[Rfam]
RNA sequence: CCGCUGCCCGUGCGGCCCUUCGGGGGUUACGGGACGGGGAAUAGUCGUGAGUCACCCGUCAUGAAAGAACCGCGACAGCU
Numbered sequence: 001c002c003g004c005u006g007c008c009c010g011u012g013c014g015g016c017c018c019u020u021c022g023g024g025g026g027u028u029a030c031g032g033g034a035c036g037g038g039g040a041a042u043a044g045u046c047g048u049g050a051g052u053c054a055c056c057c058g059u060c061a062u063g064a065a066a067g068a069a070c071c072g073c074g075a076c077a078g079c080u
Stems, first nucleotide, its partner, number of pairs: 001015004007033005016025003035058004044076005
Dot-bracket structure: [[[[..(((((]]]](((....)))...))))).[[[[.....(((((......]]]].............)))))....